Archaeal small subunit ribosomal RNA: a 579-nucleotide part of an RNA from Candidatus Nitrososphaera gargensis.
NCBI's taxonomy places the organism under Archaea, Thermoproteati, Nitrososphaerota, Nitrososphaerales, Nitrososphaera.
Pairs were carried over by alignment from the consensus structure, which is taken from published work.
Rfam links the family to the GO terms structural constituent of ribosome and ribosome.
It is one of the family's seed sequences.
RNA sequence: UGGCGGGGGAGCACCACAAGGGGUGAAGCCUGCGGUUCAAUUGGAGUCAACGCCGGGAAUCUUACCGGGGGCGACAGCAGAGUGAAGGUCAAGCUGAAGACUUUACCAGACAAGCUGAGAGGAGGUGCAUGGCCGUCGCCAGCUCGUGCCGUGAGGUGUCCUGUUAAGUCAGGUAACGAGCAAGAUCCCUGCCUCUAGUUGCUACCUCUGUUCUCAGGAACGGAGGGGCUAAUUAGAGGGACCGCCGCCGCUGAGGCGGAGGAAGGAGGGGGCUACGGCAGGUCAGUAUGCCCCGAAACCCUCGGGCCACACGCGGGCUGCAAUGGUAAGGACAGCGGGCUCCGAUCCCGAAAGGGGGAGGCAAUCCCUCAAACCUUACCUCAGUUAUGAUUGAGGGCUGAAACUCGCCCUCAUGAAUAUGGAAUCCCUAGUAACCGCGUGUCACCAUCGCGCGGUGAAUACGUCCCUGCUCCUUGCACACACCGCCCGUCGCUUCACCGAAGCUGGUUCUUGGCGAGGUGGCGCCUAAUUGGCGCUAUCGAACCUGGGGUCAGCAACGGGGGAGAAGUCGUAACAAGG
Numbered sequence: 001u002g003g004c005g006g007g008g009g010a011g012c013a014c015c016a017c018a019a020g021g022g023g024u025g026a027a028g029c030c031u032g033c034g035g036u037u038c039a040a041u042u043g044g045a046g047u048c049a050a051c052g053c054c055g056g057g058a059a060u061c062u063u064a065c066c067g068g069g070g071g072c073g074a075c076a077g078c079a080g081a082g083u084g085a086a087g088g089u090c091a092a093g094c095u096g097a098a099g100a101c102u103u104u105a106c107c108a109g110a111c112a113a114g115c116u117g118a119g120a121g122g123a124g125g126u127g128c129a130u131g132g133c134c135g136u137c138g139c140c141a142g143c144u145c146g147u148g149c150c151g152u153g154a155g156g157u158g159u160c161c162u163g164u165u166a167a168g169u170c171a172g173g174u175a176a177c178g179a180g181c182a183a184g185a186u187c188c189c190u191g192c193c194u195c196u197a198g199u200u201g202c203u204a205c206c207u208c209u210g211u212u213c214u215c216a217g218g219a220a221c222g223g224a225g226g227g228g229c230u231a232a233u234u235a236g237a238g239g240g241a242c243c244g245c246c247g248c249c250g251c252u253g254a255g256g257c258g259g260a261g262g263a264a265g266g267a268g269g270g271g272g273c274u275a276c277g278g279c280a281g282g283u284c285a286g287u288a289u290g291c292c293c294c295g296a297a298a299c300c301c302u303c304g305g306g307c308c309a310c311a312c313g314c315g316g317g318c319u320g321c322a323a324u325g326g327u328a329a330g331g332a333c334a335g336c337g338g339g340c341u342c343c344g345a346u347c348c349c350g351a352a353a354g355g356g357g358g359a360g361g362c363a364a365u366c367c368c369u370c371a372a373a374c375c376u377u378a379c380c381u382c383a384g385u386u387a388u389g390a391u392u393g394a395g396g397g398c399u400g401a402a403a404c405u406c407g408c409c410c411u412c413a414u415g416a417a418u419a420u421g422g423a424a425u426c427c428c429u430a431g432u433a434a435c436c437g438c439g440u441g442u443c444a445c446c447a448u449c450g451c452g453c454g455g456u457g458a459a460u461a462c463g464u465c466c467c468u469g470c471u472c473c474u475u476g477c478a479c480a481c482a483c484c485g486c487c488c489g490u491c492g493c494u495u496c497a498c499c500g501a502a503g504c505u506g507g508u509u510c511u512u513g514g515c516g517a518g519g520u521g522g523c524g525c526c527u528a529a530u531u532g533g534c535g536c537u538a539u540c541g542a543a544c545c546u547g548g549g550g551u552c553a554g555c556a557a558c559g560g561g562g563g564a565g566a567a568g569u570c571g572u573a574a575c576a577a578g579g
Stems, first nucleotide, its partner, number of pairs: 001480002003477003007474007016464002020428005025321001027319008035310002041056004065305007075117004080111001087107003091103003121294002124292004130288002132283003135279004142181006148157003160173004187271004192239007202228002206225007242262002245259005325380007337368003342361002346357004387418001392413007434456008483578001485575001488571002491568001493565004498560003503555009513545002518540009
Dot-bracket structure: (((((.(((((((..((..((((((.((((((((((....((((........))))........(((((((...((((.(......(((.(((.......))).)))...)..))))...((.((((..(((((((((...(((((((((....)))..((((......))))..)))))).....((((.(((((((...((..(((((((......))))))).))....)))))))..((.(((((.....))))).)).....))))....)))).)))...))))))))....)))))))...)).)))))))).)...(((((((.....(((..((..((((....))))..))....))).....)))))))......(....(((((((........)))))))....).....))))).....((((((((.......))))))))......))...)))))))))).))..(.(..((.(.((((.(((..(((((((((.((...(((((((((.....)))))))))...)).)))))))))..))).))))..).))...)..).